[Rfam]
RNA: Y RNA
RNA sequence: GAUUGGUCCAAGUGCAGUGGUGUCUACGACUAAUUUGUCAUAACCAGUUAUAGAUUUCUUUGUUUCUUUUCCACUCCCCCUGCUUUACUUGACUAGCAUUU
Numbered sequence: 001g002a003u004u005g006g007u008c009c010a011a012g013u014g015c016a017g018u019g020g021u022g023u024c025u026a027c028g029a030c031u032a033a034u035u036u037g038u039c040a041u042a043a044c045c046a047g048u049u050a051u052a053g054a055u056u057u058c059u060u061u062g063u064u065u066c067u068u069u070u071c072c073a074c075u076c077c078c079c080c081u082g083c084u085u086u087a088c089u090u091g092a093c094u095a096g097c098a099u100u101u
Base pairs, nucleotide, nucleotide: 003096004095005094006093007092008091010090011089014086016081017080019078020077022076028064029063030062032060033059
Dot-bracket structure: ..((((((.((..(.((.((.(.....(((.((.........................)).)))...........))).))....)..)))))))).....